[Rfam]
RNA: ZMP/ZTP riboswitch aptamer (pfl RNA motif)
Organism: Geodermatophilus sp. TF02-6
RNA sequence: ACGGUGGGCCGUGACUGGCGCACAGGGGUGGGUCAACCACCGGGGAGCGGCCUGCACGUCCCCGCCGGGCGCCUGGGCACCCCCC
Number, nucleotide and partner (000 for none) at each position: 001a000002c000003g000004g055005u054006g053007g052008g051009c050010c049011g048012u047013g000014a000015c044016u043017g073018g072019c071020g070021c069022a000023c000024a000025g000026g000027g000028g040029u039030g038031g037032g000033u000034c000035a000036a000037c031038c030039a029040c028041c000042g000043g016044g015045g000046a000047g012048c011049g010050g009051c008052c007053u006054g005055c004056a000057c000058g000059u000060c000061c000062c000063c000064g078065c077066c076067g000068g000069g021070c020071g019072c018073c017074u000075g000076g066077g065078c064079a000080c000081c000082c000083c000084c000085c000